Rfam assigns this 134-nucleotide sequence from Phainopepla nitens to the family "Small nucleolar RNA SNORA17". Rfam classes the family as an H/ACA-box small nucleolar RNA. Taxonomically the source falls in Phainopepla (Eukaryota, Sarcopterygii, Theropoda, Australaves). The family has 53 seed sequences and 5,784 matches in Rfam 15.1. snoRNA ACA 17 belongs to the H/ACA family of snoRNAs and is predicted to guide pseudouridylation of the 28S rRNA at positions U4659 and U4598. It shares the same host gene together with ACA43. NB This family has a high threshold value to exclude a large number of closely related sequences that do not appear to have conserved H and ACA boxes, and may be pseudogenes. Rfam links the family to the GO terms RNA processing and nucleolus. The family's consensus secondary structure was predicted with RNAalifold.
RNA sequence: CCUGCCCCAGCUCGUGUUGCAGGCGUGGCUGCAGUGCCACGUCUGUGUCAUUCGGUGGCAGACAGGAACAGGAGAUGUCUUCCCUGGUGCUCUGAGCCCUGUGAGCUCUCAGGAUUGCUCAACGACCUGACAUU
Numbered sequence: 001c002c003u004g005c006c007c008c009a010g011c012u013c014g015u016g017u018u019g020c021a022g023g024c025g026u027g028g029c030u031g032c033a034g035u036g037c038c039a040c041g042u043c044u045g046u047g048u049c050a051u052u053c054g055g056u057g058g059c060a061g062a063c064a065g066g067a068a069c070a071g072g073a074g075a076u077g078u079c080u081u082c083c084c085u086g087g088u089g090c091u092c093u094g095a096g097c098c099c100u101g102u103g104a105g106c107u108c109u110c111a112g113g114a115u116u117g118c119u120c121a122a123c124g125a126c127c128u129g130a131c132a133u134u
Base pairs, nucleotide, nucleotide: 002061003060004059005058006057007055008054010052014048015047019046020045021044022043024041025040026039027038028037029036069129070128071127072126076122082117084112085111086110087109089106090105091104092103